This 83-nucleotide RNA sequence from Pongo pygmaeus belongs to the Rfam family "mir-602 microRNA precursor family". Pairs were carried over by alignment from the consensus structure, which was predicted with RNAalifold. It is one of the family's seed sequences. NCBI's taxonomy places the organism under Eukaryota, Dipnotetrapodomorpha, Euarchontoglires, Primates, Pongo.

RNA sequence: UCACCCCCGCCUGACACGGGCGACAGCUGCGGCCUGCUGUGUUCACUCUGGCCAAGUCCAUCUCCUGUCAGGCAAGGGAGAGC
Numbered sequence: 001u002c003a004c005c006c007c008c009g010c011c012u013g014a015c016a017c018g019g020g021c022g023a024c025a026g027c028u029g030c031g032g033c034c035u036g037c038u039g040u041g042u043u044c045a046c047u048c049u050g051g052c053c054a055a056g057u058c059c060a061u062c063u064c065c066u067g068u069c070a071g072g073c074a075a076g077g078g079a080g081a082g083c
Stems, first nucleotide, its partner, number of pairs: 001081002004078003009073008018065003022062002026057003031053004036048001039046002